[Rfam]
RNA sequence: AUAACAAAAGGCUGUCGGUCUCCGAGCCGGCACGGCAGCUUAAGAGGCAUCGCGGUCUAAGUCUUGGGAGGAAGACCCUCGGCGCAGCAAUAGCUAGCAGCCGCUGAUAAACAGGAGGGAGGCACCCCUUAACUCCGCUAUCGGCUGUAGGGUAAGACGCGGAACUAAAUCAGCACGGCCUUAGCGCCGUGCUUUAUUUU
Numbered sequence: 001a002u003a004a005c006a007a008a009a010g011g012c013u014g015u016c017g018g019u020c021u022c023c024g025a026g027c028c029g030g031c032a033c034g035g036c037a038g039c040u041u042a043a044g045a046g047g048c049a050u051c052g053c054g055g056u057c058u059a060a061g062u063c064u065u066g067g068g069a070g071g072a073a074g075a076c077c078c079u080c081g082g083c084g085c086a087g088c089a090a091u092a093g094c095u096a097g098c099a100g101c102c103g104c105u106g107a108u109a110a111a112c113a114g115g116a117g118g119g120a121g122g123c124a125c126c127c128c129u130u131a132a133c134u135c136c137g138c139u140a141u142c143g144g145c146u147g148u149a150g151g152g153u154a155a156g157a158c159g160c161g162g163a164a165c166u167a168a169a170u171c172a173g174c175a176c177g178g179c180c181u182u183a184g185c186g187c188c189g190u191g192c193u194u195u196a197u198u199u200u
Stems, first nucleotide, its partner, number of pairs: 003200002006197001011039006051161004062072003075153004081102003084098002104144006172193008